Overview
Shown here is a 70-nucleotide RNA sequence from Mauremys mutica, a member of the family "Small nucleolar RNA SNORD34". Pairs were carried over by alignment from the consensus structure, which was predicted with PFOLD. The literature on the family includes a 2002 paper in Mol Cell Biol by Galardi et al., "Purified box C/D snoRNPs are able to reproduce site-specific 2'-O-methylation of target RNA in vitro". It scores 39 bits against the family's covariance model. Rfam links the family to the GO terms nucleolus and RNA processing. Lineage of the source: Eukaryota > Chordata > Sauria > Archelosauria > Mauremys. snoRNA U34 is found in intron 5 of the ribosomal protein L13a gene in humans.

[Rfam]
RNA sequence: CGUGUCCAUGAUGUUCCAUCUACCUACAUUGUUUGAUGCUGGAUGAGAAAAAUCUUGACCCUGAGACACG
Numbered sequence: 001c002g003u004g005u006c007c008a009u010g011a012u013g014u015u016c017c018a019u020c021u022a023c024c025u026a027c028a029u030u031g032u033u034u035g036a037u038g039c040u041g042g043a044u045g046a047g048a049a050a051a052a053u054c055u056u057g058a059c060c061c062u063g064a065g066a067c068a069c070g
Base pairs, nucleotide, nucleotide: 001070003068004067005066006065